[Rfam]
RNA sequence: UUAUCCGAGGAGCGCUGCAAAACCCUUUUUCGCCGCGGCGAAUGGUUUCAGGCUCGGACUUUCCAACGGCGCUCACCUGAC
Numbered sequence: 001u002u003a004u005c006c007g008a009g010g011a012g013c014g015c016u017g018c019a020a021a022a023c024c025c026u027u028u029u030u031c032g033c034c035g036c037g038g039c040g041a042a043u044g045g046u047u048u049c050a051g052g053c054u055c056g057g058a059c060u061u062u063c064c065a066a067c068g069g070c071g072c073u074c075a076c077c078u079g080a081c
Base pairs, nucleotide, nucleotide: 004058005057006056007055008054021047022046023045024044026042027041028040
Dot-bracket structure: ...(((((............((((.(((...........))).))))......))))).......................

The record is an 81-nucleotide RNA sequence from Propionivibrio dicarboxylicus, which matches "SAH (S-adenosyl-L-homocysteine) riboswitch aptamer" in Rfam. A reference for the family is Wang et al. (2008), "Riboswitches that sense S-adenosylhomocysteine and activate genes involved in coenzyme recycling", Mol Cell. Lineage of the source: Bacteria > Pseudomonadati > Pseudomonadota > Rhodocyclaceae > Propionivibrio.